mir-75 microRNA precursor family: an 84-nucleotide RNA from Diabrotica virgifera. The source organism's lineage runs through Eukaryota, Eumetazoa, Eumetabola, Galerucinae and Diabrotica virgifera. For this family Rfam cites "An abundant class of tiny RNAs with probable regulatory roles in Caenorhabditis elegans" (Lau et al., Science, 2001).
[Rfam]
RNA sequence: UUUUUGGAUGCUUAGGAGUUGGUUUCAAGCCUUAAUGAGAGGCCCUCAUUAAGGCUUCAAACCAACUCCUAAGCAUUCAAAAGU
Numbered sequence: 001u002u003u004u005u006g007g008a009u010g011c012u013u014a015g016g017a018g019u020u021g022g023u024u025u026c027a028a029g030c031c032u033u034a035a036u037g038a039g040a041g042g043c044c045c046u047c048a049u050u051a052a053g054g055c056u057u058c059a060a061a062c063c064a065a066c067u068c069c070u071a072a073g074c075a076u077u078c079a080a081a082a083g084u
Base pairs, nucleotide, nucleotide: 002083003082004081005080009075010074011073013071014070015069016068017067018066019065020064021063022062023061024060025059028056029055030054031053032052034050035049036048037047038046039045